[Rfam]
RNA: L31-Firmicutes ribosomal protein leader
RNA sequence: CUUUGGAUAAAGUAACAUCCAAGGCGGAAGGAG
Numbered sequence: 001c002u003u004u005g006g007a008u009a010a011a012g013u014a015a016c017a018u019c020c021a022a023g024g025c026g027g028a029a030g031g032a033g
Base pairs, nucleotide, nucleotide: 001024002023003022004021005020006019007018008017